[Rfam]
RNA: SAH (S-adenosyl-L-homocysteine) riboswitch aptamer
Organism: Luteimonas chenhongjianii
RNA sequence: CUCGCCGAGGGGCGCUGCGACCGUCACGUGGGUCAACCACGCGCCACACUUCCAGUGCGGCUGUCCACGACGGCCAGGCUCGGCGCGGUGUCCUGCAAACGGCGCCCGUAAUCG
Numbered sequence: 001c002u003c004g005c006c007g008a009g010g011g012g013c014g015c016u017g018c019g020a021c022c023g024u025c026a027c028g029u030g031g032g033u034c035a036a037c038c039a040c041g042c043g044c045c046a047c048a049c050u051u052c053c054a055g056u057g058c059g060g061c062u063g064u065c066c067a068c069g070a071c072g073g074c075c076a077g078g079c080u081c082g083g084c085g086c087g088g089u090g091u092c093c094u095g096c097a098a099a100c101g102g103c104g105c106c107c108g109u110a111a112u113c114g
Stems, first nucleotide, its partner, number of pairs: 003085006021073005